[Rfam]
RNA sequence: AUAGUUACCUGGCAGGGGAGAUACCAUGAUCACAAAGGUGGUUUUUUCCUGGGUGAGUCUUAUUCACUGGACUCUGAGGGGCUGACCUGCGAUUUCCCCAAAUGUUAGAAACUCCACUGCAUCAUUUGUGGUGGGGCGGGGGACUGUGUUGUGGUUUCCCCUA
Numbered sequence: 001a002u003a004g005u006u007a008c009c010u011g012g013c014a015g016g017g018g019a020g021a022u023a024c025c026a027u028g029a030u031c032a033c034a035a036a037g038g039u040g041g042u043u044u045u046u047u048c049c050u051g052g053g054u055g056a057g058u059c060u061u062a063u064u065c066a067c068u069g070g071a072c073u074c075u076g077a078g079g080g081g082c083u084g085a086c087c088u089g090c091g092a093u094u095u096c097c098c099c100a101a102a103u104g105u106u107a108g109a110a111a112c113u114c115c116a117c118u119g120c121a122u123c124a125u126u127u128g129u130g131g132u133g134g135g136g137c138g139g140g141g142g143a144c145u146g147u148g149u150u151g152u153g154g155u156u157u158c159c160c161c162u163a
Stems, first nucleotide, its partner, number of pairs: 012120004016049006023042005050089004057082003063078003091114002093111003136162001138160004143155004
Dot-bracket structure: ...........((((((((((.(((((..........))))).))))))((((...(((...(((..........))).)))...)))).(((((.............))).))..))))...............(.((((.((((.....)))).)))).).

This 163-nucleotide RNA sequence from Gulo gulo belongs to the Rfam family "U1 spliceosomal RNA". It scores 84 bits against the family's covariance model. Rfam links the family to the GO terms mRNA 5'-splice site recognition, U1 snRNP and pre-mRNA 5'-splice site binding. NCBI's taxonomy places the organism under Eukaryota, Teleostomi, Euteleostomi, Mustelidae, Gulo. U1 is a small nuclear RNA (snRNA) component of the spliceosome (involved in pre-mRNA splicing). Its 5' end forms complementary base pairs with the 5' splice junction, thus defining the 5' donor site of an intron. There are significant differences in sequence and secondary structure between metazoan and yeast U1 snRNAs, the latter being much longer (568 nucleotides as compared to 164 nucleotides in human). Nevertheless, secondary structure predictions suggest that all U1 snRNAs share a 'common core' consisting of helices I, II, the proximal region of III, and IV. This family does not contain the larger yeast sequences.